The record is an 87-nucleotide RNA sequence from Caenorhabditis brenneri, which matches "mir-785 microRNA precursor family" in Rfam. The family's consensus secondary structure was predicted with RNAalifold. Lineage of the source: Eukaryota > Opisthokonta > Protostomia > Rhabditina > Caenorhabditis. On this family, see Ruby et al., Cell 2006: "Large-scale sequencing reveals 21U-RNAs and additional microRNAs and endogenous siRNAs in C. elegans".
RNA sequence: UUCUCUCCCGUUAGCACAAAAUAUUUUACUUACACAUAACAAAACAUAUGAUGUAAGUGAAUACUUUGUGUUAAUGGAAAAAGGGCA
Numbered sequence: 001u002u003c004u005c006u007c008c009c010g011u012u013a014g015c016a017c018a019a020a021a022u023a024u025u026u027u028a029c030u031u032a033c034a035c036a037u038a039a040c041a042a043a044a045c046a047u048a049u050g051a052u053g054u055a056a057g058u059g060a061a062u063a064c065u066u067u068g069u070g071u072u073a074a075u076g077g078a079a080a081a082a083g084g085g086c087a
Stems, first nucleotide, its partner, number of pairs: 003085004008077005014071007022063001025061010